Background
Shown here is a 185-nucleotide RNA from Phytophthora infestans, a member of the family "U2 spliceosomal RNA". The family is grouped with related families in Rfam's "U2 clan". It is annotated as a spliceosomal small nuclear RNA. U2 is a small nuclear RNA (snRNA) component of the spliceosome (involved in pre-mRNA splicing). Complementary binding between U2 snRNA (in an area lying towards the 5' end but 3' to hairpin I) and the branchpoint sequence (BPS) of the intron results the bulging out of an unpaired adenosine, on the BPS, which initiates a nucleophilic attack at the intronic 5' splice site, thus starting the first of two transesterification reactions that mediate splicing. Gene Ontology terms of the family: U2 snRNP, mRNA branch site recognition and pre-mRNA branch point binding. The organism belongs to Phytophthora infestans, within Eukaryota.
RNA sequence: AUACCUUCUCGGCCUCAAGGCUAAGAUCAAGUGUAGUAUCUGUUCUAAUCAGUGUGAAAACUGGUUUUCGCCUUUUGGCGGACUUUUUCACUCGCAUUUUUGGGCAAUCGUCUGCGGCUAGCUUGCUAGCGGCGGACGAGCGGUCUCCGGGGGCGUUCACCUUUCCCCCGCGAGGCCAACUACAC
Numbered sequence: 001a002u003a004c005c006u007u008c009u010c011g012g013c014c015u016c017a018a019g020g021c022u023a024a025g026a027u028c029a030a031g032u033g034u035a036g037u038a039u040c041u042g043u044u045c046u047a048a049u050c051a052g053u054g055u056g057a058a059a060a061c062u063g064g065u066u067u068u069c070g071c072c073u074u075u076u077g078g079c080g081g082a083c084u085u086u087u088u089c090a091c092u093c094g095c096a097u098u099u100u101u102g103g104g105c106a107a108u109c110g111u112c113u114g115c116g117g118c119u120a121g122c123u124u125g126c127u128a129g130c131g132g133c134g135g136a137c138g139a140g141c142g143g144u145c146u147c148c149g150g151g152g153g154c155g156u157u158c159a160c161c162u163u164u165c166c167c168c169c170g171c172g173a174g175g176c177c178a179a180c181u182a183c184a185c
Base pairs, nucleotide, nucleotide: 007026008025009024011022012021013020014019047066048065049064050063051062052061068081069080070079071078072077109138110137111136112135113134114133115132118129119128120127121126142177143176144175145174146173148170149169150168151167152166153165